[Rfam]
RNA sequence: UUAAGGAAUAGGAGAGACAGAUUAGUCUCUUUUACUCGGAAGAACAGAGGUAGAACAAAUGCAAUGGCGAGAUAUCGUUUCAGUCGUCAUUCUUUGAUUGACGAUUCGAUUGUUGCUCGCCAACAU
Numbered sequence: 001u002u003a004a005g006g007a008a009u010a011g012g013a014g015a016g017a018c019a020g021a022u023u024a025g026u027c028u029c030u031u032u033u034a035c036u037c038g039g040a041a042g043a044a045c046a047g048a049g050g051u052a053g054a055a056c057a058a059a060u061g062c063a064a065u066g067g068c069g070a071g072a073u074a075u076c077g078u079u080u081c082a083g084u085c086g087u088c089a090u091u092c093u094u095u096g097a098u099u100g101a102c103g104a105u106u107c108g109a110u111u112g113u114u115g116c117u118c119g120c121c122a123a124c125a126u
Stems, first nucleotide, its partner, number of pairs: 006037002009034009065122002068119004074110004083105007091097002
RNA: Small nucleolar RNA snoR111
Organism: Populus alba